[Rfam]
RNA sequence: AGUGAUAGGUUUUCUCUUCCAGAGACAGCCGGGGGGCGUAAGCCCUUAAUAACUACCCUGCCGAGGACGAGCCAAAAGCGACCAUAGAUACUAUGGGCGACCUCGGCAUGUGCGGGUCGCUUUUUUUAUUGUUUG
Number, nucleotide and partner (000 for none) at each position: 001a000002g000003u000004g000005a000006u000007a000008g000009g000010u000011u000012u000013u000014c000015u000016c000017u000018u000019c000020c000021a000022g000023a000024g000025a000026c000027a000028g061029c060030c000031g058032g057033g056034g045035g044036g043037c000038g000039u000040a000041a000042g000043c036044c035045c034046u000047u000048a000049a000050u000051a000052a000053c000054u000055a000056c033057c032058c031059u000060g029061c028062c000063g000064a000065g000066g000067a000068c000069g000070a000071g000072c000073c000074a000075a000076a000077a000078g000079c000080g000081a000082c000083c000084a000085u000086a000087g000088a000089u000090a000091c000092u000093a000094u000095g000096g000097g120098c119099g118100a117101c116102c115103u114104c000105g113106g000107c000108a000109u000110g000111u000112g000113c105114g103115g102116g101117u100118c099119g098120c097121u000122u000123u000124u000125u000126u000127u000128a000129u000130u000131g000132u000133u000134u000135g000
RNA: Ribosomal protein L10 leader